[Rfam]
RNA sequence: UAAUAAGAGCGUAGGGAGAAUGCCUUGGCAUUAGGAGCCGAUGAAGGACGUGAUAAGCUGCGAUAAGCUGCGGGGAAGAGCAAGUAUCUAGUGAUCCGCAGAUUUCCGAAUGGAGCAAUCCGCAUGAGUAUGCUCAUGCACUGUACAGUGAAUAAAAUAGCUGUAUGGGGGGAACCGCCUGAACUGAAACAUCUAAGUAGGGCGAGGAAGAGAAAUCAACCGAGAUUCUGUGAGUAGUGGCGAGCGAAAGCGGAAGAGGCUAAACCAGAGGUAGCAAUACCUUUGGGGUUUUGGACAGCAUUUAGCAUUGUAAUGAUUUAGUUGAAUCGUGUGGGAAAACGAACCAAAGAGUGUGAGAGUCACGUAAGCGAAAAGUCAGAGCAGCGAGCUGUAUCCGGAGUACCGCGGGACACGUGAAACCCCGUGGGAAGAUGGGGGGACCAUCCUCCAAGCCUAAAUACUACCUAAUGACCGAUAGCGAAUAGUACUGUGAAGGAACGGUGAAAAGAACCCCGGGAGGGGAGUGAAAAAGAACCUGAAACCCUAUGCUUACAAG
Numbered sequence: 001u002a003a004u005a006a007g008a009g010c011g012u013a014g015g016g017a018g019a020a021u022g023c024c025u026u027g028g029c030a031u032u033a034g035g036a037g038c039c040g041a042u043g044a045a046g047g048a049c050g051u052g053a054u055a056a057g058c059u060g061c062g063a064u065a066a067g068c069u070g071c072g073g074g075g076a077a078g079a080g081c082a083a084g085u086a087u088c089u090a091g092u093g094a095u096c097c098g099c100a101g102a103u104u105u106c107c108g109a110a111u112g113g114a115g116c117a118a119u120c121c122g123c124a125u126g127a128g129u130a131u132g133c134u135c136a137u138g139c140a141c142u143g144u145a146c147a148g149u150g151a152a153u154a155a156a157a158u159a160g161c162u163g164u165a166u167g168g169g170g171g172g173a174a175c176c177g178c179c180u181g182a183a184c185u186g187a188a189a190c191a192u193c194u195a196a197g198u199a200g201g202g203c204g205a206g207g208a209a210g211a212g213a214a215a216u217c218a219a220c221c222g223a224g225a226u227u228c229u230g231u232g233a234g235u236a237g238u239g240g241c242g243a244g245c246g247a248a249a250g251c252g253g254a255a256g257a258g259g260c261u262a263a264a265c266c267a268g269a270g271g272u273a274g275c276a277a278u279a280c281c282u283u284u285g286g287g288g289u290u291u292u293g294g295a296c297a298g299c300a301u302u303u304a305g306c307a308u309u310g311u312a313a314u315g316a317u318u319u320a321g322u323u324g325a326a327u328c329g330u331g332u333g334g335g336a337a338a339a340c341g342a343a344c345c346a347a348a349g350a351g352u353g354u355g356a357g358a359g360u361c362a363c364g365u366a367a368g369c370g371a372a373a374a375g376u377c378a379g380a381g382c383a384g385c386g387a388g389c390u391g392u393a394u395c396c397g398g399a400g401u402a403c404c405g406c407g408g409g410a411c412a413c414g415u416g417a418a419a420c421c422c423c424g425u426g427g428g429a430a431g432a433u434g435g436g437g438g439g440a441c442c443a444u445c446c447u448c449c450a451a452g453c454c455u456a457a458a459u460a461c462u463a464c465c466u467a468a469u470g471a472c473c474g475a476u477a478g479c480g481a482a483u484a485g486u487a488c489u490g491u492g493a494a495g496g497a498a499c500g501g502u503g504a505a506a507a508g509a510a511c512c513c514c515g516g517g518a519g520g521g522g523a524g525u526g527a528a529a530a531a532g533a534a535c536c537u538g539a540a541a542c543c544c545u546a547u548g549c550u551u552a553c554a555a556g
Stems, first nucleotide, its partner, number of pairs: 007551010022536001023501002027473002029470007036462002038171002046107003049062003068101007077089003112121003122139007141168009175206001176204005186193002216223002226458001227254005237245002257455004265286007292397003296391004308384004314378006321369003327342004345349001351363003403427007434449005488495002511522004

Bacterial large subunit ribosomal RNA: a 556-nucleotide part of an RNA from Hominimerdicola alba. It scores 2767 bits against the family's covariance model. Lineage of the source: Bacteria > Bacillati > Bacillota > Oscillospiraceae > Hominimerdicola alba. The family's consensus secondary structure is taken from published work.